RNA sequence: CAUAAGUUGUAGGGGGACCAGUGUUGCUGGUUGAGAUAGUAUCCGUAAGAUACUGACUCUUCGAACCUGAUCUGGCUAAGACCAGCGUAGGGAACACAUUUUGUUUGAGA
Numbered sequence: 001c002a003u004a005a006g007u008u009g010u011a012g013g014g015g016g017a018c019c020a021g022u023g024u025u026g027c028u029g030g031u032u033g034a035g036a037u038a039g040u041a042u043c044c045g046u047a048a049g050a051u052a053c054u055g056a057c058u059c060u061u062c063g064a065a066c067c068u069g070a071u072c073u074g075g076c077u078a079a080g081a082c083c084a085g086c087g088u089a090g091g092g093a094a095c096a097c098a099u100u101u102u103g104u105u106u107g108a109g110a
Base pairs, nucleotide, nucleotide: 008096009095010094011060012059013058014057017031018030019029020028021027038054039053040052041051042050066091067090068089069088072085073084074083075082
The family of this 110-nucleotide sequence from Tenuibacillus multivorans is "TPP riboswitch aptamer (THI element)". From the family's description: Vitamin B(1) in its active form thiamin pyrophosphate (TPP) is an essential coenzyme that is synthesised by coupling of pyrimidine and thiazole moieties in bacteria. The base pairs follow the family's consensus structure, which is taken from published work. The match comes from Rfam's covariance-model search (71 bits).